[Rfam]
A member of the RNA family "Eukaryotic large subunit ribosomal RNA" from Phaeodactylum tricornutum, 354 nucleotides of a longer RNA. Gene Ontology terms of the family: ribosome and structural constituent of ribosome. Its Rfam clan is "LSU clan". Rfam's curators put it in the seed alignment.
RNA sequence: GAGUUGGUUGUCGCGACAGUAAUCCAACUUAGUACGAGAGGAACCGUUGGUUCGGAUAUUUGGUAACGCGGUUGGCUGAGUAGCCAAUGCCGCAAAGCUAUCAUCCGUAGGAUUAUGACUGAACGCCUCUAAGUCAGAAUCCAUGCUGGCAAGCGACGAUAUUCACCUCGACCGGUGUUGGAGUACGAAUAGCCCACCUUUUGGUUGGGUCAACACGCUAUUUCACCGCAAAGCAGAAUGUUGGUCGAGUUAAAUCCUCUGUAGACGACUUAAUUAUGGAACGGGGUACUGUAAGCAUGAGAGUAGCCCUUGUGCUACGAUCUGCUGAGGUUCAGCCUCUGUUCCGGGAUUUGU
Numbered sequence: 001g002a003g004u005u006g007g008u009u010g011u012c013g014c015g016a017c018a019g020u021a022a023u024c025c026a027a028c029u030u031a032g033u034a035c036g037a038g039a040g041g042a043a044c045c046g047u048u049g050g051u052u053c054g055g056a057u058a059u060u061u062g063g064u065a066a067c068g069c070g071g072u073u074g075g076c077u078g079a080g081u082a083g084c085c086a087a088u089g090c091c092g093c094a095a096a097g098c099u100a101u102c103a104u105c106c107g108u109a110g111g112a113u114u115a116u117g118a119c120u121g122a123a124c125g126c127c128u129c130u131a132a133g134u135c136a137g138a139a140u141c142c143a144u145g146c147u148g149g150c151a152a153g154c155g156a157c158g159a160u161a162u163u164c165a166c167c168u169c170g171a172c173c174g175g176u177g178u179u180g181g182a183g184u185a186c187g188a189a190u191a192g193c194c195c196a197c198c199u200u201u202u203g204g205u206u207g208g209g210u211c212a213a214c215a216c217g218c219u220a221u222u223u224c225a226c227c228g229c230a231a232a233g234c235a236g237a238a239u240g241u242u243g244g245u246c247g248a249g250u251u252a253a254a255u256c257c258u259c260u261g262u263a264g265a266c267g268a269c270u271u272a273a274u275u276a277u278g279g280a281a282c283g284g285g286g287u288a289c290u291g292u293a294a295g296c297a298u299g300a301g302a303g304u305a306g307c308c309c310u311u312g313u314g315c316u317a318c319g320a321u322c323u324g325c326u327g328a329g330g331u332u333c334a335g336c337c338u339c340u341g342u343u344c345c346g347g348g349a350u351u352u353g354u
Stems, first nucleotide, its partner, number of pairs: 007160008017148004022052001024050005053107005061100003068093004072087006110142002116136005168248007252352005258272001261269001278345006284338003288331002295325003300321001303318005